The family of this 172-nucleotide RNA sequence from Photobacterium sp. SKA34 is "sok antitoxin (CssrC)". It is one of the family's seed sequences. Rfam's curators write: Also identified in Shigella as CssrC.

Nucleotides: 172
Base pairs, nucleotide, nucleotide: 001075002074003073005072006071007070011066013064014063015062016061017060018059019058020057021056022055023054026051027050076097080093081092082091083090084089098138099137100136101135102134106130111125112124113123142164146160
Number, partner (000 for none) and nucleotide at each position: 001075g002074g003073g004000u005072g006071c007070u008000c009000u010000u011066g012000g013064c014063u015062g016061u017060c018059u019058g020057u021056c022055a023054g024000g025000a026051g027050c028000a029000u030000a031000a032000c033000a034000a035000c036000u037000g038000u039000c040000a041000c042000u043000g044000g045000a046000u047000g048000u049000c050027g051026u052000g053000a054023c055022u056021g057020g058019c059018a060017g061016a062015u063014a064013g065000a066011c067000g068000a069000a070007a071006g072005c073003c074002c075001c076097g077000a078000a079000a080093g081092u082091u083090a084089a085000u086000u087000u088000c089084u090083u091082a092081a093080c094000c095000a096000a097076c098138g099137a100136g101135g102134c103000a104000a105000u106130c107000u108000g109000a110000u111125g112124a113123a114000a115000c116000u117000c118000g119000a120000c121000a122000c123113u124112u125111c126000u127000g128000a129000u130106g131000u132000u133000a134102g135101c136100c137099u138098c139000u140000a141000u142164u143000u144000a145000a146160u147000u148000g149000a150000g151000a152000g153000g154000c155000a156000a157000g158000a159000c160146g161000u162000a163000u164142g165000c166000u167000g168000c169000g170000a171000a172000g